About this RNA
Shown here is a 97-nucleotide sequence from Deefgea piscis, a member of the family "Glycine riboswitch aptamer". It scores 60 bits against the family's covariance model.

[Rfam]
RNA sequence: AUUCAGCCAAUUGGAGAGCGGUUGCUUAGCGCAACCCACCGAAGGGGCAAGUGGCGCCAGCCACGCAACUCUCAGGUAAAAGGACAAAGGGAGAGGC
Numbered sequence: 001a002u003u004c005a006g007c008c009a010a011u012u013g014g015a016g017a018g019c020g021g022u023u024g025c026u027u028a029g030c031g032c033a034a035c036c037c038a039c040c041g042a043a044g045g046g047g048c049a050a051g052u053g054g055c056g057c058c059a060g061c062c063a064c065g066c067a068a069c070u071c072u073c074a075g076g077u078a079a080a081a082g083g084a085c086a087a088a089g090g091g092a093g094a095g096g097c
Stems, first nucleotide, its partner, number of pairs: 007091002011087003020036004038077003041073002045071003051064002